[Rfam]
RNA sequence: UAUCUAAGGCUGCCGAAUCCUUGCAAAAGGUACGGGGGACGUAUUUUGGGGUGAAUCUAUCAGUUUCGCCUGAUGGUAGGGUUACCUUCGGCCCGAACCCGUCAGCUAACCUCGGAGGCAUGAGAAGGGAGAAAUC
Numbered sequence: 001u002a003u004c005u006a007a008g009g010c011u012g013c014c015g016a017a018u019c020c021u022u023g024c025a026a027a028a029g030g031u032a033c034g035g036g037g038g039a040c041g042u043a044u045u046u047u048g049g050g051g052u053g054a055a056u057c058u059a060u061c062a063g064u065u066u067c068g069c070c071u072g073a074u075g076g077u078a079g080g081g082u083u084a085c086c087u088u089c090g091g092c093c094c095g096a097a098c099c100c101g102u103c104a105g106c107u108a109a110c111c112u113c114g115g116a117g118g119c120a121u122g123a124g125a126a127g128g129g130a131g132a133a134a135u136c
Stems, first nucleotide, its partner, number of pairs: 011120004019030004033114005040048002049100003057076006079094004